[Rfam]
RNA sequence: UUAGUCUAUGUAAACAUCCUACACUCAGCUCGUAUGUAUAACCUGACUGGGUGGGGGGUGUUUGCCUCGACUGA
Numbered sequence: 001u002u003a004g005u006c007u008a009u010g011u012a013a014a015c016a017u018c019c020u021a022c023a024c025u026c027a028g029c030u031c032g033u034a035u036g037u038a039u040a041a042c043c044u045g046a047c048u049g050g051g052u053g054g055g056g057g058g059u060g061u062u063u064g065c066c067u068c069g070a071c072u073g074a
Stems, first nucleotide, its partner, number of pairs: 002073005008067001010065011022053007030045001
The family of this 74-nucleotide RNA sequence from Xenopus tropicalis is "mir-30 microRNA precursor family". From the family's description: This family consists of the mammalian microRNA (miRNA) precursor mir-30a. Animal miRNAs are transcribed as ~70nt precursors and subsequently processed by the Dicer enzyme to give a ~22nt product. In this case the mature sequence comes from both the 3' (miR-30) and 5' (mir-97-6) arms of the precursor. The extents of the hairpin precursors are not generally known and are estimated based on hairpin prediction. The products are thought to have regulatory roles through complementarity to mRNA. The involvement of Dicer in miRNA processing suggests a relationship with the phenomenon of RNA interference. miRNAs are numbered based on the sequence of the mature RNA. It is one of the family's seed sequences.